[Rfam]
RNA sequence: GGGGACCUUCGGGGCCCUUCAUCACUCGCGGCCCCACAAUCGAGGGUCGCCACAGAAACGGAAGACAGAAA
Numbered sequence: 001g002g003g004g005a006c007c008u009u010c011g012g013g014g015c016c017c018u019u020c021a022u023c024a025c026u027c028g029c030g031g032c033c034c035c036a037c038a039a040u041c042g043a044g045g046g047u048c049g050c051c052a053c054a055g056a057a058a059c060g061g062a063a064g065a066c067a068g069a070a071a
Stems, first nucleotide, its partner, number of pairs: 001018004006014003028050007
Dot-bracket structure: ((((.(((...))))))).........(((((((.........))))))).....................
L2-Alphaproteobacteria ribosomal protein leader: a 71-nucleotide sequence from Palleronia marisminoris. The family's RNA type in Rfam is cis-regulatory leader. The organism belongs to Palleronia, within Bacteria.